RNA: transfer-messenger RNA
RNA sequence: GGGGGCGAAAAGGGCUCGACGGGGAUAGGUAGGAUUAAACAGCAGGCCGUGGUCGCACCCAACCACGUUAAAUAGGGUGCAAAAACACAACUGCCAACGAAUACGCCUACGCUUUGGCAGCCUAAGCGUGCUGCCACGCACCUUUAGACCUUGCCUGUGGGUCUAAAGGUGUGUGACCUAACAGGCUUUGGGAGGCUUAAUCGGUGGGGUUAAGCCUCCCGAGAUUACAUCCCACCUGGUAGGGUUGCUUGGUGCCUGUGACAAGCACCCUACGAGAUUUUCCCACAGGCUAAGCCUGUAGCGGUUUAAUCUGAACUAUCUCCGGACGCGGGUUCGAUUCCCGCCGCCUCCACCA
Numbered sequence: 001g002g003g004g005g006c007g008a009a010a011a012g013g014g015c016u017c018g019a020c021g022g023g024g025a026u027a028g029g030u031a032g033g034a035u036u037a038a039a040c041a042g043c044a045g046g047c048c049g050u051g052g053u054c055g056c057a058c059c060c061a062a063c064c065a066c067g068u069u070a071a072a073u074a075g076g077g078u079g080c081a082a083a084a085a086c087a088c089a090a091c092u093g094c095c096a097a098c099g100a101a102u103a104c105g106c107c108u109a110c111g112c113u114u115u116g117g118c119a120g121c122c123u124a125a126g127c128g129u130g131c132u133g134c135c136a137c138g139c140a141c142c143u144u145u146a147g148a149c150c151u152u153g154c155c156u157g158u159g160g161g162u163c164u165a166a167a168g169g170u171g172u173g174u175g176a177c178c179u180a181a182c183a184g185g186c187u188u189u190g191g192g193a194g195g196c197u198u199a200a201u202c203g204g205u206g207g208g209g210u211u212a213a214g215c216c217u218c219c220c221g222a223g224a225u226u227a228c229a230u231c232c233c234a235c236c237u238g239g240u241a242g243g244g245u246u247g248c249u250u251g252g253u254g255c256c257u258g259u260g261a262c263a264a265g266c267a268c269c270c271u272a273c274g275a276g277a278u279u280u281u282c283c284c285a286c287a288g289g290c291u292a293a294g295c296c297u298g299u300a301g302c303g304g305u306u307u308a309a310u311c312u313g314a315a316c317u318a319u320c321u322c323c324g325g326a327c328g329c330g331g332g333u334u335c336g337a338u339u340c341c342c343g344c345c346g347c348c349u350c351c352a353c354c355a
Base pairs, nucleotide, nucleotide: 001351002350003349004348005347006346007345020324021323022322023321024320025319026318027317028316030314032312033311034310035309036308037307038306039305040304042302043298044297045296046295047294048067049066050065051064052063055080056079057078058077059076060075115136116135117134118133119132120131121130137173138172139171140170141169142168143167144166145165146164148162149161150160151159153186154185155184156183157182158181188222189221190220191219192218193217194216195215196214203237204236207233208232239273240272241271242270243269246267247266248265250263251262254290255289256288257287258284260282328344329343330342331341332340